[Rfam]
Bacillus sRNA ncr1575: a 214-nucleotide RNA sequence from Bacillus thuringiensis. The family's consensus secondary structure is taken from published work.
RNA sequence: AAUAGAAUUAUGAAAGGAAUGAUGGAUGAAUAAUGAUUAACUAAUUUAUAUUUUAAGUUGAAUUUUAUAACUUCAAACUACAAAAUAUAGGGUUAGUCUAUCCAUUUUUAAAAUUCAGUUCAUACUUUAUUUGUCAUGAUUCAAAUGAUUAAUAAGUACUUAUUAAGUAUAGACGAAAGACUAAUCCUUCCGAUUACAAUUGGGGGAUUUUUUU
Number, nucleotide and partner (000 for none) at each position: 001a000002a000003u000004a000005g000006a000007a000008u000009u000010a000011u000012g000013a000014a000015a000016g000017g109018a108019a107020u000021g000022a000023u104024g103025g102026a101027u000028g000029a000030a097031u096032a000033a000034u000035g000036a000037u000038u000039a000040a000041c000042u095043a094044a093045u092046u091047u090048a088049u087050a086051u085052u084053u083054u000055a000056a000057g078058u076059u075060g074061a073062a072063u000064u070065u000066u000067a000068u000069a000070a064071c000072u062073u061074c060075a059076a058077a000078c057079u000080a000081c000082a000083a053084a052085a051086u050087a049088u048089a000090g047091g046092g045093u044094u043095a042096g031097u030098c000099u000100a000101u026102c025103c024104a023105u000106u000107u019108u018109u017110a000111a000112a000113a000114u000115u000116c000117a164118g163119u162120u000121c000122a000123u000124a157125c156126u155127u154128u000129a000130u151131u000132u000133g000134u000135c000136a000137u000138g000139a000140u000141u000142c000143a000144a000145a000146u000147g000148a000149u000150u000151a130152a000153u000154a127155a126156g125157u124158a000159c000160u000161u000162a119163u118164u117165a000166a000167g000168u000169a000170u000171a000172g000173a000174c000175g000176a000177a000178a000179g000180a000181c000182u000183a209184a208185u207186c206187c205188u000189u204190c203191c202192g201193a200194u000195u000196a000197c000198a000199a000200u193201u192202g191203g190204g189205g187206g186207a185208u184209u183210u000211u000212u000213u000214u000
Rfam classes the family as a small RNA. Taxonomically the source falls in Bacillus thuringiensis (Bacteria, Bacillati, Caryophanales, Bacillaceae). On this family, see Irnov et al., Nucleic Acids Res 2010: "Identification of regulatory RNAs in Bacillus subtilis".